[Rfam]
RNA sequence: UCGGCGCCUGUAGCCUAAUGAAGCAUGCGAAACUGGUAGCGGUUUGGUGUGGAGCCUUCAGGACAACGUAACCCGGUUUUGAACCGAGUGCGAUACGCGAGGAAGAAGCAUGUCUGCAAGUGUCAAUGCAGACAAGGCG
Numbered sequence: 001u002c003g004g005c006g007c008c009u010g011u012a013g014c015c016u017a018a019u020g021a022a023g024c025a026u027g028c029g030a031a032a033c034u035g036g037u038a039g040c041g042g043u044u045u046g047g048u049g050u051g052g053a054g055c056c057u058u059c060a061g062g063a064c065a066a067c068g069u070a071a072c073c074c075g076g077u078u079u080u081g082a083a084c085c086g087a088g089u090g091c092g093a094u095a096c097g098c099g100a101g102g103a104a105g106a107a108g109c110a111u112g113u114c115u116g117c118a119a120g121u122g123u124c125a126a127u128g129c130a131g132a133c134a135a136g137g138c139g
Stems, first nucleotide, its partner, number of pairs: 019060005024051005030045006074086005088111004096101001113132006

Description: A member of the RNA family "Group II catalytic intron D1-D4-7" from Sodalis-like symbiont of Philaenus spumarius, 139 nucleotides long. A search with the family's covariance model found it, with a score of 82 bits.